[Rfam]
The family of this 85-nucleotide RNA sequence from Megasphaera vaginalis is "ZMP/ZTP riboswitch aptamer (pfl RNA motif)". NCBI's taxonomy places the organism under Bacteria, Bacillati, Negativicutes, Veillonellales, Megasphaera. Rfam 15.1 lists 3,295 matches to the family in 2,545 species. The match comes from Rfam's covariance-model search (57 bits).
RNA sequence: AAACCGAUAUGGAACUGACGGAUAGUGGAAUUAACCACAUGAACCGUAUCGCAUAAAGUAUGAGCCGACCGUCUGGGCAGAGAUA
Numbered sequence: 001a002a003a004c005c006g007a008u009a010u011g012g013a014a015c016u017g018a019c020g021g022a023u024a025g026u027g028g029a030a031u032u033a034a035c036c037a038c039a040u041g042a043a044c045c046g047u048a049u050c051g052c053a054u055a056a057a058g059u060a061u062g063a064g065c066c067g068a069c070c071g072u073c074u075g076g077g078c079a080g081a082g083a084u085a
Base pairs, nucleotide, nucleotide: 005051006050007049008048009047010046011045012044015041017073018072019071020070021069025038026037027036028035064078065077066076